RNA sequence: CGCGCGGCAGGACGGAAAGACCCCGGGACCUUUACUAUAGUUUGGCAUUGGUGUUUGGUUCGGCUUGUGUAGGAUAGGUGGGAGACUGUGAAGCGGCCACGCCAGUGGUUGUGGAGUCAUCGUUGAAAUACCACUCUGGUCGUACUAGAUGUCUAACCUCGGGCCAUGAUCUGGUUCAGGGACAGUGCCUGAUGGGUAGUUUAACUGGGGCGGUUGCCUCCCAAAAUGUAACGGAGGCGCUCAAAGGUUCCCUCAGCCUGGUUGGCAAUCAGGUUUCGAGUGUAAGUGCACAAGGGAGCUUGACUGUGAGACAGACAUGUCGAGCAGGGACGAAAGUCGGAACUAGUGAUCCGGCGACUCCGAGUGGAAGGGUCGUCGCUCAACGGAUAAAAGGUACCCCGGGGAUAACAGGCUGAUCUUCCCCAAGAGUCCAUAUCGACGGGAUGGUUUGGCACCUCGAUGUCGGCUCGUCGCAUCCUGGGGCUGGAGUAGGUCCCAAGGGUUGGGCUGUUCGCCCAUUAAAGCGGCACGCGAGCUGGGUUUAGAACGUCGUGAGACAGUUCGGUCCCUAUCCGCCGCGCGCGUA
Dot-bracket structure: ((((((((.(((.((......(((((((((((.((((...((.((((..((((((((((.(((((.(.........(((((..(((......((((((((....))))))))...)))............)))))).))))).))))))))))...(((.((((((.....))))))))).....)))).))....))))..((((.....))))((((((...........))))))(.((....((((((((.((((((.......))))))...))((......))....))))))....((((..(((......)))..)))).(((....))).))..........(((((((.((........))))))))).....)......)))))..))))))........(((.(((.((((...((.......))...)))).))..))))..........(((((((((((..((.((((((......))))))...)).(((((.....))))).....)))))..)..)))).).....(((((((....))).))))....))..)))))))))))....